[Rfam]
RNA sequence: AAUAAGAGUGUGACUUUGUUAUAUGCCACGCUUACCCAUAGAUUGGUAAGUGCUGUAUGGCUAUCCAGACAUAUGGCCGACAUAAUUUGUGGAAUCUUAUAGGGUUGGCUCGUUUCUGGCCGACCCUCCA
Numbered sequence: 001a002a003u004a005a006g007a008g009u010g011u012g013a014c015u016u017u018g019u020u021a022u023a024u025g026c027c028a029c030g031c032u033u034a035c036c037c038a039u040a041g042a043u044u045g046g047u048a049a050g051u052g053c054u055g056u057a058u059g060g061c062u063a064u065c066c067a068g069a070c071a072u073a074u075g076g077c078c079g080a081c082a083u084a085a086u087u088u089g090u091g092g093a094a095u096c097u098u099a100u101a102g103g104g105u106u107g108g109c110u111c112g113u114u115u116c117u118g119g120c121c122g123a124c125c126c127u128c129c130a
Stems, first nucleotide, its partner, number of pairs: 008081002010077001011028002014025001029052008038043001053076007101127010112116001
Rfam assigns this 130-nucleotide RNA from Papaver nudicaule to the family "U11 spliceosomal RNA". A search with the family's covariance model found it, with a score of 51 bits.